[Rfam]
RNA: Streptomyces RNA 1601
RNA sequence: AACGACCGGUCGGACACCGCGUGCCCGGCCCACAAGUGGAGGCUCCGAUCUCCCACCUGACCGUCCCACGGGACGGCGGGUCACCGGUCAGACGACCACCACCGUUCCGUACGGACGGUGGAGUCGUCCGAUUCGCGCCCCGCGGGCUCACCGCGGCGGUGCUCCGGCUGCUUCGGAGUCCCGCCUGUGUCCCGUCCGGGGCAUUUUUC
Numbered sequence: 001a002a003c004g005a006c007c008g009g010u011c012g013g014a015c016a017c018c019g020c021g022u023g024c025c026c027g028g029c030c031c032a033c034a035a036g037u038g039g040a041g042g043c044u045c046c047g048a049u050c051u052c053c054c055a056c057c058u059g060a061c062c063g064u065c066c067c068a069c070g071g072g073a074c075g076g077c078g079g080g081u082c083a084c085c086g087g088u089c090a091g092a093c094g095a096c097c098a099c100c101a102c103c104g105u106u107c108c109g110u111a112c113g114g115a116c117g118g119u120g121g122a123g124u125c126g127u128c129c130g131a132u133u134c135g136c137g138c139c140c141c142g143c144g145g146g147c148u149c150a151c152c153g154c155g156g157c158g159g160u161g162c163u164c165c166g167g168c169u170g171c172u173u174c175g176g177a178g179u180c181c182c183g184c185c186u187g188u189g190u191c192c193c194g195u196c197c198g199g200g201g202c203a204u205u206u207u208u209c
Base pairs, nucleotide, nucleotide: 004089005088006087007086008085009084012026013025027082028081029080030079031078033059034058036056037055038054039053040051041050061076062075063074064073065072066071091128092127093126094125095124099121100120101119102118103117104116105115106114137202138201139200140199141198142197143194144193145192152189153188154187155185156184157183158182159181161179162178163177164176165175